[Rfam]
RNA sequence: CCGAAUGCAAUCAGUGUUCUACUCUUCUAUUAAAGAACCUGACUAUAUGGGCAGCAUGCUACAUACAAUAAAUGAGAAGGUAUUUUUAGGGCUGCUGACUUUUUAGUUGAGUUUAUGUGGCAGUAUAUUUCUUCUACAUUA
Numbered sequence: 001c002c003g004a005a006u007g008c009a010a011u012c013a014g015u016g017u018u019c020u021a022c023u024c025u026u027c028u029a030u031u032a033a034a035g036a037a038c039c040u041g042a043c044u045a046u047a048u049g050g051g052c053a054g055c056a057u058g059c060u061a062c063a064u065a066c067a068a069u070a071a072a073u074g075a076g077a078a079g080g081u082a083u084u085u086u087u088a089g090g091g092c093u094g095c096u097g098a099c100u101u102u103u104u105a106g107u108u109g110a111g112u113u114u115a116u117g118u119g120g121c122a123g124u125a126u127a128u129u130u131c132u133u134c135u136a137c138a139u140u141a
Base pairs, nucleotide, nucleotide: 001054012041013040014039016038017037018036019035020034076134077133078132079131091121092120095117096115097114098113100111101110102109